[Rfam]
RNA sequence: UCAGAUCUCCGGGCUCCUGCCGCGCACUAAGCGACGAAUGUCGUGGAGCGAGGAAAGUCCGGGCUUUGCCGACACACCCCAGCAGGUAAUGCCUGCCCGCCGCGAGGCGAGCCACGGCAACAGAGACGAGCGUCCCAGUCGGGACGGGUGAAACGGGCGACAGGGUGGGGGAAGCAACCGCAAGAAGUGCCCUGUGACCUGUGUCGGGGAGGGCUUUGGUGGCGGGCAAGGAGGCGUCUGGCGACAGGCGUCCAAGAGGAAUGGCAGCCCUCGACAGAACCCGGCUUACAGGGGAUCUGGUCUC
Numbered sequence: 001u002c003a004g005a006u007c008u009c010c011g012g013g014c015u016c017c018u019g020c021c022g023c024g025c026a027c028u029a030a031g032c033g034a035c036g037a038a039u040g041u042c043g044u045g046g047a048g049c050g051a052g053g054a055a056a057g058u059c060c061g062g063g064c065u066u067u068g069c070c071g072a073c074a075c076a077c078c079c080c081a082g083c084a085g086g087u088a089a090u091g092c093c094u095g096c097c098c099g100c101c102g103c104g105a106g107g108c109g110a111g112c113c114a115c116g117g118c119a120a121c122a123g124a125g126a127c128g129a130g131c132g133u134c135c136c137a138g139u140c141g142g143g144a145c146g147g148g149u150g151a152a153a154c155g156g157g158c159g160a161c162a163g164g165g166u167g168g169g170g171g172a173a174g175c176a177a178c179c180g181c182a183a184g185a186a187g188u189g190c191c192c193u194g195u196g197a198c199c200u201g202u203g204u205c206g207g208g209g210a211g212g213g214c215u216u217u218g219g220u221g222g223c224g225g226g227c228a229a230g231g232a233g234g235c236g237u238c239u240g241g242c243g244a245c246a247g248g249c250g251u252c253c254a255a256g257a258g259g260a261a262u263g264g265c266a267g268c269c270c271u272c273g274a275c276a277g278a279a280c281c282c283g284g285c286u287u288a289c290a291g292g293g294g295a296u297c298u299g300g301u302c303u304c
Stems, first nucleotide, its partner, number of pairs: 001300010011289001012269003018266004023050003027046003031042001055287003059284005064174004077170005082096005097111001098109004112165002116161001117158002131147001133143003178225004189214004198208003233252008
Rfam assigns this 304-nucleotide RNA from Mesorhizobium wenxiniae to the family "Bacterial RNase P class A".
The match comes from Rfam's covariance-model search (134 bits).
The family's RNA type in Rfam is ribozyme.
The source organism's lineage runs through Bacteria, Pseudomonadota, Hyphomicrobiales, Phyllobacteriaceae and Mesorhizobium.